[Rfam]
RNA sequence: GUGCCAUGAUGUAGCAGUCAACACAUCAUUCUGAAGAAAAAUUGUGCGGAGACCUUCUCUAACUGAGCACC
Numbered sequence: 001g002u003g004c005c006a007u008g009a010u011g012u013a014g015c016a017g018u019c020a021a022c023a024c025a026u027c028a029u030u031c032u033g034a035a036g037a038a039a040a041a042u043u044g045u046g047c048g049g050a051g052a053c054c055u056u057c058u059c060u061a062a063c064u065g066a067g068c069a070c071c
Stems, first nucleotide, its partner, number of pairs: 001070004

The record is a 71-nucleotide sequence from Steatornis caripensis, which matches "Small nucleolar RNA SNORD63" in Rfam. The organism belongs to Steatornis, within Eukaryota. Rfam's curators write: snoRNA U63 is found in both humans and mice. The base pairs follow the family's consensus structure, which was predicted with PFOLD. Rfam classes the family as a C/D-box small nucleolar RNA. On this family, see Galardi et al., Mol Cell Biol 2002: "Purified box C/D snoRNPs are able to reproduce site-specific 2'-O-methylation of target RNA in vitro". The match comes from Rfam's covariance-model search (58 bits).